[Rfam]
RNA: ZMP/ZTP riboswitch aptamer (pfl RNA motif)
Organism: Poindextera montana
RNA sequence: CAUUCCUUGCGUGACUGGCGAUGAAGGUGGGCGACCACCGGGGAGCGCGGGGACAUAUCCGCCGCUCGCCUGGGCAAUGUCC
Numbered sequence: 001c002a003u004u005c006c007u008u009g010c011g012u013g014a015c016u017g018g019c020g021a022u023g024a025a026g027g028u029g030g031g032c033g034a035c036c037a038c039c040g041g042g043g044a045g046c047g048c049g050g051g052g053a054c055a056u057a058u059c060c061g062c063c064g065c066u067c068g069c070c071u072g073g074g075c076a077a078u079g080u081c082c
Base pairs, nucleotide, nucleotide: 004053005052006051007050008049009048010047011046012045015042016041017070018069019068020067021066027038028037029036030035061075062074063073